[Rfam]
Small nucleolar RNA SNORD45: an 82-nucleotide RNA sequence from Thalassarche chlororhynchos. Its family is annotated with nucleolus and RNA processing in the Gene Ontology. A reference for the family is Huttenhofer et al. (2001), "RNomics: an experimental approach that identifies 201 candidates for novel, small, non-messenger RNAs in mouse", EMBO J. The organism belongs to Thalassarche, within Eukaryota. The family's consensus secondary structure was predicted with PFOLD.
Nucleotides: 082
Stems, first nucleotide, its partner, number of pairs: 001080004
Number, partner (000 for none) and nucleotide at each position: 001080g002079g003078u004077c005000u006000g007000u008000g009000a010000u011000g012000g013000c014000u015000g016000u017000u018000g019000g020000c021000a022000u023000g024000u025000a026000u027000u028000a029000u030000c031000u032000g033000a034000u035000c036000u037000a038000a039000a040000u041000c042000u043000g044000a045000a046000g047000a048000u049000g050000g051000u052000c053000a054000g055000u056000u057000u058000a059000g060000c061000u062000c063000u064000a065000g066000a067000a068000u069000u070000g071000c072000u073000c074000u075000g076000a077004g078003a079002c080001c081000u082000g